[Rfam]
RNA sequence: UCUUGUCAGUGAUGAUCCCUAACUUUACCUACCUUGUUUGAAAACAUAUGAGAACAUUCAAAUAUCUGAGACAACA
Numbered sequence: 001u002c003u004u005g006u007c008a009g010u011g012a013u014g015a016u017c018c019c020u021a022a023c024u025u026u027a028c029c030u031a032c033c034u035u036g037u038u039u040g041a042a043a044a045c046a047u048a049u050g051a052g053a054a055c056a057u058u059c060a061a062a063u064a065u066c067u068g069a070g071a072c073a074a075c076a
Base pairs, nucleotide, nucleotide: 001076004073005072006071007070
Description:
Shown here is a 76-nucleotide RNA from Clupea harengus, a member of the family "Small nucleolar RNA SNORD34". The family's RNA type in Rfam is C/D-box small nucleolar RNA. Rfam describes the family as follows. snoRNA U34 is found in intron 5 of the ribosomal protein L13a gene in humans. Its family is annotated with RNA processing and nucleolus in the Gene Ontology. Its Rfam clan is "SNORD34 clan". NCBI's taxonomy places the organism under Eukaryota, Eumetazoa, Bilateria, Chordata, Clupea. For this family Rfam cites "Purified box C/D snoRNPs are able to reproduce site-specific 2'-O-methylation of target RNA in vitro" (Galardi et al., Mol Cell Biol, 2002). The family has 14 seed sequences and 1,319 matches in Rfam 15.1.